[Rfam]
RNA: Purine riboswitch aptamer
RNA sequence: AUAGUGUAUGAGAAGAUCCCUCAUAUAAUUUUGGGAAUAUGGCCCAAAAGUUUCUACCCAAUCACCGUAAAUGAUUGGACUAUGAGGGAAAGGAUCGGUUUU
Numbered sequence: 001a002u003a004g005u006g007u008a009u010g011a012g013a014a015g016a017u018c019c020c021u022c023a024u025a026u027a028a029u030u031u032u033g034g035g036a037a038u039a040u041g042g043c044c045c046a047a048a049a050g051u052u053u054c055u056a057c058c059c060a061a062u063c064a065c066c067g068u069a070a071a072u073g074a075u076u077g078g079a080c081u082a083u084g085a086g087g088g089a090a091a092g093g094a095u096c097g098g099u100u101u102u
Stems, first nucleotide, its partner, number of pairs: 018088008029049007058078007